[Rfam]
RNA sequence: AAGCCGGCCAAUGAAUCUGCUUAGGUGAAUGUGUUUCCAGAGAAAUGUAAAACAUGCUGGCAAUAGUAAUGCCCCGUUACCAGCCUUAAAGACAUUGAAGUCCUUAAGGUCCCUGAAAAUGGCUACAAGA
Numbered sequence: 001a002a003g004c005c006g007g008c009c010a011a012u013g014a015a016u017c018u019g020c021u022u023a024g025g026u027g028a029a030u031g032u033g034u035u036u037c038c039a040g041a042g043a044a045a046u047g048u049a050a051a052a053c054a055u056g057c058u059g060g061c062a063a064u065a066g067u068a069a070u071g072c073c074c075c076g077u078u079a080c081c082a083g084c085c086u087u088a089a090a091g092a093c094a095u096u097g098a099a100g101u102c103c104u105u106a107a108g109g110u111c112c113c114u115g116a117a118a119a120u121g122g123c124u125a126c127a128a129g130a
Base pairs, nucleotide, nucleotide: 003061004060005059006058007057016043017042018041071123072122073121083110084109085108086107087106088105089104091102092101093100

This 130-nucleotide RNA sequence from Suricata suricatta belongs to the Rfam family "Small nucleolar RNA SNORA33". By type it is an H/ACA-box small nucleolar RNA. Gene Ontology terms of the family: RNA processing and nucleolus. Rfam describes the family as follows. ACA33 is a member of the H/ACA class of snoRNA that guide the sites of modification of uridines to pseudouridines.